Shown here is a 92-nucleotide sequence from Luteimonas sp. FCS-9, a member of the family "t44 RNA". NCBI's taxonomy places the organism under Bacteria, Pseudomonadota, Gammaproteobacteria, Lysobacteraceae, Luteimonas. A reference for the family is Tjaden et al. (2002), "Transcriptome analysis of Escherichia coli using high-density oligonucleotide probe arrays", Nucleic Acids Res. This family consists of a number of bacterial RNA genes of between 135 and 170 bases in length. The t44 gene has been identified in several species of enteric bacteria but homologs have also been identified in Pseudomonas and Coxiella species. The t44 gene is found between the map and rpsB genes in all species in the full alignment apart from Shigella flexneri. The base pairs follow the family's consensus structure, which was predicted with LocARNA. Rfam classes the family as a small RNA.
RNA sequence: GGGCGUCAUCGGCGAAUACACACCUGUCGCAUCGACCCGUGCCGGGGUGCCUCGCAAGAGGUUCGGCCACGGAGGCGACAGGGAGGCCCAAC
Numbered sequence: 001g002g003g004c005g006u007c008a009u010c011g012g013c014g015a016a017u018a019c020a021c022a023c024c025u026g027u028c029g030c031a032u033c034g035a036c037c038c039g040u041g042c043c044g045g046g047g048u049g050c051c052u053c054g055c056a057a058g059a060g061g062u063u064c065g066g067c068c069a070c071g072g073a074g075g076c077g078a079c080a081g082g083g084a085g086g087c088c089c090a091a092c
Stems, first nucleotide, its partner, number of pairs: 023082008037072004041067004049062005